[Rfam]
RNA sequence: UACGACCGGUCGGACACGUGUGUGACCGACCCACAAGUGGAGGCUCCGAUCUCCCACCUGACCGUCCUCCGGGACGGCGGGUCACCGGUCAGGCGGCCGCCAUCGUUCCGUACGGACGAUGGAGCCGCCCGAACAGCGCCCCGCGGGUCACUGCGGCGGUGCUCCGGCGUCUCGGAGUCCCGCCUGUGCACCGUCCGGGGCAUUUUUU
Numbered sequence: 001u002a003c004g005a006c007c008g009g010u011c012g013g014a015c016a017c018g019u020g021u022g023u024g025a026c027c028g029a030c031c032c033a034c035a036a037g038u039g040g041a042g043g044c045u046c047c048g049a050u051c052u053c054c055c056a057c058c059u060g061a062c063c064g065u066c067c068u069c070c071g072g073g074a075c076g077g078c079g080g081g082u083c084a085c086c087g088g089u090c091a092g093g094c095g096g097c098c099g100c101c102a103u104c105g106u107u108c109c110g111u112a113c114g115g116a117c118g119a120u121g122g123a124g125c126c127g128c129c130c131g132a133a134c135a136g137c138g139c140c141c142c143g144c145g146g147g148u149c150a151c152u153g154c155g156g157c158g159g160u161g162c163u164c165c166g167g168c169g170u171c172u173c174g175g176a177g178u179c180c181c182g183c184c185u186g187u188g189c190a191c192c193g194u195c196c197g198g199g200g201c202a203u204u205u206u207u208u
Stems, first nucleotide, its partner, number of pairs: 004090006012027002028083005034060002037057004041052002062077006092129005100122008138201006144193003152188003155184005161178005
The record is a 208-nucleotide RNA from Streptomyces minutiscleroticus, which matches "Streptomyces RNA 1601" in Rfam. A reference for the family is Vockenhuber et al. (2011), "Deep sequencing-based identification of small non-coding RNAs in Streptomyces coelicolor", RNA Biol. Rfam describes the family as follows. Identified by deep sequencing of transcriptome at the end of exponential growth phase. Appears longer on northern blot than sequencing transcript. Streptomyces specific. It scores 180 bits against the family's covariance model.